[Rfam]
RNA sequence: GGAGGCGAUUGGGUGCCUGGUGGCCCUCCCGGUCUUCAAAACCGUAGGGAUCCGAGCAUCUCGGGUCGGCGGGUUCGAUUCCCGUUCGCCUCC
Numbered sequence: 001g002g003a004g005g006c007g008a009u010u011g012g013g014u015g016c017c018u019g020g021u022g023g024c025c026c027u028c029c030c031g032g033u034c035u036u037c038a039a040a041a042c043c044g045u046a047g048g049g050a051u052c053c054g055a056g057c058a059u060c061u062c063g064g065g066u067c068g069g070c071g072g073g074u075u076c077g078a079u080u081c082c083c084g085u086u087c088g089c090c091u092c093c
Stems, first nucleotide, its partner, number of pairs: 001093008012027002015024003028047001030044004049067005070084004
Selenocysteine transfer RNA: a 93-nucleotide RNA sequence from Actinomadura rudentiformis. Pairs were carried over by alignment from the consensus structure, which is taken from published work.